Description:
Shown here is a 109-nucleotide RNA from Microcebus murinus, a member of the family "Y RNA". Pairs were carried over by alignment from the consensus structure, which is taken from published work. The literature on the family includes a 2013 paper in Physiol Genomics by Dhahbi et al., "5'-YRNA fragments derived by processing of transcripts from specific YRNA genes and pseudogenes are abundant in human serum and plasma". From the family's description: Y RNAs are components of the Ro ribonucleoprotein particle (Ro RNP), in association with Ro60 and La proteins. The match comes from Rfam's covariance-model search (47 bits). NCBI's taxonomy places the organism under Eukaryota, Mammalia, Eutheria, Euarchontoglires, Microcebus.
RNA sequence: GGAUGGUAUGAAGGUAGUGAGUUAUCUCACUUGAUUGCUACAGUUACAGAUUGAACUACUUGUUCUACAACUUUUCCCUCUUCUCACUAUUGCACUUGAUUAGUCUUAA
Numbered sequence: 001g002g003a004u005g006g007u008a009u010g011a012a013g014g015u016a017g018u019g020a021g022u023u024a025u026c027u028c029a030c031u032u033g034a035u036u037g038c039u040a041c042a043g044u045u046a047c048a049g050a051u052u053g054a055a056c057u058a059c060u061u062g063u064u065c066u067a068c069a070a071c072u073u074u075u076c077c078c079u080c081u082u083c084u085c086a087c088u089a090u091u092g093c094a095c096u097u098g099a100u101u102a103g104u105c106u107u108a109a
Stems, first nucleotide, its partner, number of pairs: 001105002004102004010097002014093002016088006039069001042066002